[Rfam]
RNA sequence: UAAUAAAGCAAUUGACUGCCGAAGACAGCAGGUGCCGUAAGGCAUAAGUUUAAAAACGCCUGCCGAGGAAGAUCAUGAUUCUUAAUGUGAAUUAUUGAGCCUCUGUGUCUUGGGACAUGGGGGCUUUUAUUUUUGGCAG
Numbered sequence: 001u002a003a004u005a006a007a008g009c010a011a012u013u014g015a016c017u018g019c020c021g022a023a024g025a026c027a028g029c030a031g032g033u034g035c036c037g038u039a040a041g042g043c044a045u046a047a048g049u050u051u052a053a054a055a056a057c058g059c060c061u062g063c064c065g066a067g068g069a070a071g072a073u074c075a076u077g078a079u080u081c082u083u084a085a086u087g088u089g090a091a092u093u094a095u096u097g098a099g100c101c102u103c104u105g106u107g108u109c110u111u112g113g114g115a116c117a118u119g120g121g122g123g124c125u126u127u128u129a130u131u132u133u134u135g136g137c138a139g
Base pairs, nucleotide, nucleotide: 028063029062030061031060032059033058034043035042036041099124100123101122102121103120104119105118106117107116108115
Ribosomal protein L10 leader: a 139-nucleotide sequence from Clostridium sp. D5. The base pairs follow the family's consensus structure, which was predicted with CMfinder. Rfam classes the family as a cis-regulatory leader. From the family's description: This family is a putative r-protein leader autoregulatory structure found in B. subtilis and other low-GC Gram-positive bacteria.